RNA sequence: CCUCCUUUUCUUGGCAGGGGCCAGGUGUGUGGCCCACUCUCCUUUAUGGAUGGAGGCAGAGGGAAAGGGCUCUGGCCCCUCAAUGCCGUGUCUUCCUUCAGUGCCAGCGGCUUCCCUUCCUCCGGUUCUAUCCUCAAGUACCAGGACACCA
Numbered sequence: 001c002c003u004c005c006u007u008u009u010c011u012u013g014g015c016a017g018g019g020g021c022c023a024g025g026u027g028u029g030u031g032g033c034c035c036a037c038u039c040u041c042c043u044u045u046a047u048g049g050a051u052g053g054a055g056g057c058a059g060a061g062g063g064a065a066a067g068g069g070c071u072c073u074g075g076c077c078c079c080u081c082a083a084u085g086c087c088g089u090g091u092c093u094u095c096c097u098u099c100a101g102u103g104c105c106a107g108c109g110g111c112u113u114c115c116c117u118u119c120c121u122c123c124g125g126u127u128c129u130a131u132c133c134u135c136a137a138g139u140a141c142c143a144g145g146a147c148a149c150c151a
Stems, first nucleotide, its partner, number of pairs: 001056005016043005024035002084140003104125002107122001109120002

The family of this 151-nucleotide RNA sequence from Prolemur simus is "Small nucleolar RNA SNORA57". The match comes from Rfam's covariance-model search (96 bits). Rfam describes the family as follows. U99 belongs to the H/ACA class of snoRNAs which are thought to guide the sites of modification of uridines to pseudouridines, the target for this family is unknown. Pairs were carried over by alignment from the consensus structure, which was predicted with PFOLD. It is annotated as an H/ACA-box small nucleolar RNA.